[Rfam]
RNA: mir-217 microRNA precursor family
Organism: Albula glossodonta
RNA sequence: AGCUUUCUGAUGUCGAUGAUACUGCAUCAGGAACUGACUGGAUAAUGUCGAAAGGCCAUCAGCUCCUCAUGCAUUGCCUUCAGCAUCGAAAGA
Numbered sequence: 001a002g003c004u005u006u007c008u009g010a011u012g013u014c015g016a017u018g019a020u021a022c023u024g025c026a027u028c029a030g031g032a033a034c035u036g037a038c039u040g041g042a043u044a045a046u047g048u049c050g051a052a053a054g055g056c057c058a059u060c061a062g063c064u065c066c067u068c069a070u071g072c073a074u075u076g077c078c079u080u081c082a083g084c085a086u087c088g089a090a091a092g093a
Base pairs, nucleotide, nucleotide: 023073024072025071026070027069029067030066031065032064034062035061036060037059039058040057041056